[Rfam]
RNA sequence: UCGUGCUAGGUGGGGAGGUAGCGGUGCCCUGUACUCGCAAUCCGCUAUAGCGAGACGGAAUCCCUUCCCUAGGUCUUGUUACCGUAGGGUCUGCCCUAAGUAAGUGGUGUUGACAUUUGGGUUCUACGCAACGGAAACCCAUGAACCCUGUCAGGUCCGGAAGGAAGCAGCAGUAAGUGGACUCUUCCGUGUGCCGUAGAGUUGCCUGAAUUGAGCUAACUGCUUAGGUAACGCCUGGGGUAACUUGAUCGAAGGAAGGUGCACGG
Number, nucleotide and partner (000 for none) at each position: 001u266002c265003g264004u263005g262006c261007u000008a000009g000010g056011u055012g030013g029014g028015g027016a000017g025018g000019u023020a000021g000022c000023g019024g000025u017026g000027c015028c014029c013030u012031g000032u000033a000034c054035u053036c052037g051038c050039a000040a000041u000042c000043c000044g000045c000046u000047a000048u000049a000050g038051c037052g036053a035054g034055a011056c010057g000058g000059a000060a000061u000062c000063c259064c258065u257066u256067c255068c254069c000070u000071a000072g250073g249074u248075c247076u000077u000078g000079u243080u242081a241082c240083c239084g000085u237086a236087g235088g234089g000090u000091c000092u230093g229094c000095c000096c227097u226098a225099a224100g223101u222102a000103a000104g220105u219106g217107g216108u215109g000110u000111u000112g000113a000114c000115a211116u210117u209118u208119g207120g206121g205122u204123u200124c199125u198126a197127c196128g195129c191130a190131a000132c189133g188134g187135a186136a185137a000138c000139c180140c179141a178142u177143g000144a000145a000146c000147c000148c173149u172150g171151u170152c000153a000154g000155g000156u165157c164158c163159g000160g000161a000162a000163g158164g157165a156166a000167g000168c000169a000170g151171c150172a149173g148174u000175a000176a000177g142178u141179g140180g139181a000182c000183u000184c000185u136186u135187c134188c133189g132190u130191g129192u000193g000194c000195c128196g127197u126198a125199g124200a123201g000202u000203u000204g122205c121206c120207u119208g118209a117210a116211u115212u000213g000214a000215g108216c107217u106218a000219a105220c104221u000222g101223c100224u099225u098226a097227g096228g000229u093230a092231a000232c000233g000234c088235c087236u086237g085238g000239g083240g082241u081242a080243a079244c000245u000246u000247g075248a074249u073250c072251g000252a000253a000254g068255g067256a066257a065258g064259g063260u000261g006262c005263a004264c003265g002266g001

Background
Bacterial large signal recognition particle RNA: a 266-nucleotide RNA from Anaerobacillus arseniciselenatis. NCBI's taxonomy places the organism under Bacteria, Bacillati, Caryophanales, Bacillaceae, Anaerobacillus. The match comes from Rfam's covariance-model search (234 bits).